Shown here is a 362-nucleotide RNA from Sinorhizobium medicae, a member of the family "Alphaproteobacteria transfer-messenger RNA". Clan: tRNA clan. Rfam classes the family as a non-coding RNA gene. Pairs were carried over by alignment from the consensus structure, which is taken from published work.
[Rfam]
Nucleotides: 362
Stems, first nucleotide, its partner, number of pairs: 040055005059200005069194003072190004084179003088176003094110005111161007201216003206227001208225001211223002328343004334359006
Number, partner (000 for none) and nucleotide at each position: 001000g002000c003000c004000c005000u006000u007000u008000u009000c010000u011000u012000a013000g014000g015000c016000c017000c018000c019000g020000g021000a022000a023000a024000g025000a026000c027000c028000u029000a030000u031000a032000u033000g034000a035000c036000g037000u038000g039000u040055g041054c042053c043052g044051u045000c046000u047000u048000c049000g050000g051044g052043c053042g054041g055040c056000u057000a058000u059200g060199g061198c062197a063196a064000u065000a066000a067000a068000c069194g070193g071192g072190c073189g074188a075187u076000g077000c078000a079000a080000u081000a082000a083000a084179c085178c086177c087000a088176u089175u090174g091000g092000a093000c094110c095109c096108g097107g098106g099000g100000g101000c102000g103000g104000u105000a106098c107097c108096c109095g110094g111161c112160g113159c114158c115157u116156c117155c118000a119000c120000c121000a122000a123000a124000a125000a126000c127000c128000g129000g130000u131000c132000g133000g134000a135000a136000u137000u138000c139000g140000a141000g142000a143000c144000c145000g146000g147000c148000u149000u150000u151000u152000g153000a154000u155117g156116g157115g158114g159113g160112c161111g162000a163000a164000a165000u166000a167000g168000g169000a170000u171000c172000g173000a174090c175089a176088a177086g178085g179084g180000c181000g182000u183000a184000a185000a186000g187075a188074u189073c190072g191000a192071c193070u194069u195000u196063u197062u198061g199060c200059u201216c202215g203214g204000c205000a206227u207000u208225g209000u210000a211223c212222c213000a214203c215202c216201g217000u218000u219000a220000u221000c222212g223211g224000g225208c226000u227206a228000a229000a230000c231000u232000u233000a234000u235000a236000g237000u238000u239000g240000c241000a242000a243000a244000c245000g246000a247000c248000a249000a250000c251000u252000a253000u254000g255000c256000u257000g258000a259000a260000g261000c262000a263000c264000g265000u266000c267000u268000c269000g270000c271000u272000g273000c274000c275000u276000a277000a278000c279000g280000g281000c282000g283000g284000u285000g286000c287000g288000a289000c290000a291000c292000u293000u294000c295000a296000a297000a298000u299000c300000a301000a302000g303000u304000c305000c306000u307000u308000c309000c310000g311000g312000g313000u314000a315000g316000c317000a318000c319000c320000g321000u322000a323000a324000g325000g326000c327000g328343g329342g330341g331340u332000c333000c334359g335358a336357a337356g338355g339354c340331a341330c342329c343328u344000g345000g346000c347000a348000a349000c350000a351000g352000a353000a354339g355338c356337c357336u358335u359334c360000a361000c362000c